[Rfam]
RNA sequence: UUGUCAUGAUUCACCUCUCAGACAGGUGUUGAUUGAAAGUGCCGGGCGGGUUACCGGCCCGCCCGGUGCGCCU
Numbered sequence: 001u002u003g004u005c006a007u008g009a010u011u012c013a014c015c016u017c018u019c020a021g022a023c024a025g026g027u028g029u030u031g032a033u034u035g036a037a038a039g040u041g042c043c044g045g046g047c048g049g050g051u052u053a054c055c056g057g058c059c060c061g062c063c064c065g066g067u068g069c070g071c072c073u
Stems, first nucleotide, its partner, number of pairs: 004036003012028005039069012
Background: The family of this 73-nucleotide RNA sequence from Eoetvoesiella caeni is "Plasmid transferred anti-sense RNA". Its family is annotated with mRNA binding and negative regulation of translation in the Gene Ontology. The literature on the family includes a 2010 paper in RNA Biol by Findeiss et al., "A novel family of plasmid-transferred anti-sense ncRNAs". The organism belongs to Eoetvoesiella, within Bacteria.